[Rfam]
RNA sequence: AGUUAAAAAAUUCAUCCAUUUCUAUAGUUAAUAACUGGCAUAGCUGACAAAAUAAUCAGAUAGUUACACGUGGUGUGUCAUGUGUACCUCAUCUCGACAUACAAAGACCAGUUUUUAACCAUAGAAAUGGAUGAAAUUUUUAACA
Numbered sequence: 001a002g003u004u005a006a007a008a009a010a011u012u013c014a015u016c017c018a019u020u021u022c023u024a025u026a027g028u029u030a031a032u033a034a035c036u037g038g039c040a041u042a043g044c045u046g047a048c049a050a051a052a053u054a055a056u057c058a059g060a061u062a063g064u065u066a067c068a069c070g071u072g073g074u075g076u077g078u079c080a081u082g083u084g085u086a087c088c089u090c091a092u093c094u095c096g097a098c099a100u101a102c103a104a105a106g107a108c109c110a111g112u113u114u115u116u117a118a119c120c121a122u123a124g125a126a127a128u129g130g131a132u133g134a135a136a137u138u139u140u141u142a143a144c145a
Stems, first nucleotide, its partner, number of pairs: 002144008011135006018128008028118004033113001

This 145-nucleotide RNA sequence from Gossypium mustelinum belongs to the Rfam family "MIR7502 microRNA precursor family". Gene Ontology terms of the family: miRNA-mediated post-transcriptional gene silencing and RISC complex.